[Rfam]
RNA sequence: AUAAGCUACAAUGACCAUAGCAGAAGCAUUUGUGUUGCAGCCCCUGUCAGAUUCCAACAAAUCUGCUAAAUUCUGCU
Numbered sequence: 001a002u003a004a005g006c007u008a009c010a011a012u013g014a015c016c017a018u019a020g021c022a023g024a025a026g027c028a029u030u031u032g033u034g035u036u037g038c039a040g041c042c043c044c045u046g047u048c049a050g051a052u053u054c055c056a057a058c059a060a061a062u063c064u065g066c067u068a069a070a071u072u073c074u075g076c077u
Stems, first nucleotide, its partner, number of pairs: 013042001015040001019077007026038003048065006
RNA: Mammalian CPEB3 ribozyme